The family of this 273-nucleotide sequence from Fusarium zealandicum is "A. fumigatus sRNA Afu_309".

[Rfam]
RNA sequence: CUCUUAAUCACGGAUCUGUGCCCAGCGAUCCUCUGCUCUUCGGAGUCAGGGUCGAUUGCUGUGCAGCUCGAUAACUUCAGGAGCCAUCAACUUGUUAUGGUGUAAAUCAUCCUAUCGACAGGUCCAAAAGUAACUCGUGCUUUGGCUUCCUCAUUCGCUGUCGCAAGACAGCUUGAGUGUUGCGGCCGGAGCAUGCAAGACGCUAUAUUCCACCCCCCUUUUCCGAGGCCGUUGGCUAGUGAGGUUGGGGUUAACCAUGGGUUGUCUACAUGU
Numbered sequence: 001c002u003c004u005u006a007a008u009c010a011c012g013g014a015u016c017u018g019u020g021c022c023c024a025g026c027g028a029u030c031c032u033c034u035g036c037u038c039u040u041c042g043g044a045g046u047c048a049g050g051g052u053c054g055a056u057u058g059c060u061g062u063g064c065a066g067c068u069c070g071a072u073a074a075c076u077u078c079a080g081g082a083g084c085c086a087u088c089a090a091c092u093u094g095u096u097a098u099g100g101u102g103u104a105a106a107u108c109a110u111c112c113u114a115u116c117g118a119c120a121g122g123u124c125c126a127a128a129a130g131u132a133a134c135u136c137g138u139g140c141u142u143u144g145g146c147u148u149c150c151u152c153a154u155u156c157g158c159u160g161u162c163g164c165a166a167g168a169c170a171g172c173u174u175g176a177g178u179g180u181u182g183c184g185g186c187c188g189g190a191g192c193a194u195g196c197a198a199g200a201c202g203c204u205a206u207a208u209u210c211c212a213c214c215c216c217c218c219u220u221u222u223c224c225g226a227g228g229c230c231g232u233u234g235g236c237u238a239g240u241g242a243g244g245u246u247g248g249g250g251u252u253a254a255c256c257a258u259g260g261g262u263u264g265u266c267u268a269c270a271u272g273u
Stems, first nucleotide, its partner, number of pairs: 012125008020064002023061003027057004031051005036045003072117001074115001081103001083101003137194003141190006153178004157172006199266003203260004215250004223244002227237004

Lineage of the source: Eukaryota > leotiomyceta > Hypocreales > Fusarium > Fusarium staphyleae species complex.